[Rfam]
RNA sequence: AGCAGAUAAAGGCAACUCCCCAUACUCGGGAGACGCAAAGCCACCGGCCAUCGGCCCUUGCCGAUUGGCGGCGGAGCUACCUCA
Numbered sequence: 001a002g003c004a005g006a007u008a009a010a011g012g013c014a015a016c017u018c019c020c021c022a023u024a025c026u027c028g029g030g031a032g033a034c035g036c037a038a039a040g041c042c043a044c045c046g047g048c049c050a051u052c053g054g055c056c057c058u059u060g061c062c063g064a065u066u067g068g069c070g071g072c073g074g075a076g077c078u079a080c081c082u083c084a
Stems, first nucleotide, its partner, number of pairs: 012036002017031004039078003044074003047069003052063004